[Rfam]
Nucleotides: 086
Base pairs, nucleotide, nucleotide: 001086003084004083005082006081
Number, partner (000 for none) and nucleotide at each position: 001086u002000u003084u004083g005082g006081c007000c008000a009000u010000g011000a012000u013000g014000a015000c016000c017000c018000a019000c020000u021000u022000g023000c024000c025000c026000u027000c028000c029000c030000u031000g032000a033000g034000a035000a036000c037000a038000g039000a040000g041000u042000u043000c044000g045000g046000u047000a048000a049000u050000g051000g052000g053000a054000a055000u056000c057000u058000u059000u060000a061000u062000u063000u064000a065000u066000u067000u068000a069000u070000u071000u072000u073000u074000u075000a076000a077000u078000g079000g080000a081006g082005u083004c084003a085000c086001a